[Rfam]
RNA sequence: GCCAUGCCUACCGCGACGGCGGGAAAAUAGAUAGUUACCCCUUAUAUUUGCUGGCAUGGCUUCCGAAUUAGGA
Numbered sequence: 001g002c003c004a005u006g007c008c009u010a011c012c013g014c015g016a017c018g019g020c021g022g023g024a025a026a027a028u029a030g031a032u033a034g035u036u037a038c039c040c041c042u043u044a045u046a047u048u049u050g051c052u053g054g055c056a057u058g059g060c061u062u063c064c065g066a067a068u069u070a071g072g073a
Base pairs, nucleotide, nucleotide: 001060002059003058004057005056006055007054008053011022012021013020014019028050029049030048031047032046040072041071042070
int-alpA RNA: a 73-nucleotide RNA sequence from Glaciimonas immobilis.
Acidobacteria (1 example), Planctomycetes (1 example), Proteobacteria.
The organism belongs to Glaciimonas, within Bacteria.